RNA sequence: GUUUAAAUACAUCCUAUGUUAAUGUUCAAC
Numbered sequence: 001g002u003u004u005a006a007a008u009a010c011a012u013c014c015u016a017u018g019u020u021a022a023u024g025u026u027c028a029a030c
Stems, first nucleotide, its partner, number of pairs: 009019004
Shown here is a 30-nucleotide RNA sequence from Clostridium botulinum, a member of the family "CRISPR RNA direct repeat element".
Its family is annotated with defense response in the Gene Ontology.